[Rfam]
BsrG: a 246-nucleotide RNA from Siminovitchia fortis. The literature on the family includes a 2015 paper in Mol Microbiol by Jahn et al., "Against the mainstream: the membrane-associated type I toxin BsrG from Bacillus subtilis interferes with cell envelope biosynthesis without increasing membrane permeability". Gene Ontology terms of the family: toxin activity and autolysis. Rfam describes the family as follows. bsrE, bsrG and bsrH pair through intermolecular interactions with antisense sRNAs. The base pairs follow the family's consensus structure, which was predicted with WAR. The family's RNA type in Rfam is small RNA.

RNA sequence: ACAAUAGAACAGGUUUCUCAAGGGCGGUCUGUGCACACUUCUCGCAAGGAGGGAGGUGGUGCCAUGACAGUAUACGAAUCUAUCACGUCCAUGAUUGGCUUUGCUGUUUUGAUUGUGGCCAUUCUGUCAUUUAACAAAGACUAAAGCCGCCUUUGAGAUGGCCCUCCAGGCGGCUUAGACACUAUCGUGCUGAUCCCCGGCGGGACCUGCUAUUGUCGGAUCGUUUCGGUGUUCCCAGCGCCGAAA
Numbered sequence: 001a002c003a004a005u006a007g008a009a010c011a012g013g014u015u016u017c018u019c020a021a022g023g024g025c026g027g028u029c030u031g032u033g034c035a036c037a038c039u040u041c042u043c044g045c046a047a048g049g050a051g052g053g054a055g056g057u058g059g060u061g062c063c064a065u066g067a068c069a070g071u072a073u074a075c076g077a078a079u080c081u082a083u084c085a086c087g088u089c090c091a092u093g094a095u096u097g098g099c100u101u102u103g104c105u106g107u108u109u110u111g112a113u114u115g116u117g118g119c120c121a122u123u124c125u126g127u128c129a130u131u132u133a134a135c136a137a138a139g140a141c142u143a144a145a146g147c148c149g150c151c152u153u154u155g156a157g158a159u160g161g162c163c164c165u166c167c168a169g170g171c172g173g174c175u176u177a178g179a180c181a182c183u184a185u186c187g188u189g190c191u192g193a194u195c196c197c198c199g200g201c202g203g204g205a206c207c208u209g210c211u212a213u214u215g216u217c218g219g220a221u222c223g224u225u226u227c228g229g230u231g232u233u234c235c236c237a238g239c240g241c242c243g244a245a246a
Stems, first nucleotide, its partner, number of pairs: 001216003005212003009208001015193002017157008026147001036058002039055005066128005072122001079094002103120001105118001167187001169185001194205004224246010